[Rfam]
RNA sequence: GACACUCUUGGCCUUCUCUUCCUGGUUCUUCCCGGAGUCGGGAAAAGCUGGGUUGAGAGGGCGGAGAAAAAAAAAA
Number, nucleotide and partner (000 for none) at each position: 001g000002a000003c000004a000005c000006u000007c000008u000009u000010g000011g000012c000013c000014u059015u058016c057017u056018c055019u000020u000021c052022c051023u050024g049025g048026u000027u000028c000029u044030u043031c042032c041033c040034g039035g000036a000037g000038u000039c034040g033041g032042g031043a030044a029045a000046a000047g000048c025049u024050g023051g022052g021053u000054u000055g018056a017057g016058a015059g014060g000061g000062c000063g000064g000065a000066g000067a000068a000069a000070a000071a000072a000073a000074a000075a000076a000
Background
The family of this 76-nucleotide sequence from Prolemur simus is "mir-320 microRNA precursor family". It scores 88 bits against the family's covariance model. For this family Rfam cites "Many novel mammalian microRNA candidates identified by extensive cloning and RAKE analysis" (Berezikov et al., Genome Res, 2006). Gene Ontology terms of the family: negative regulation of gene expression, positive regulation of stem cell proliferation and long-term synaptic potentiation.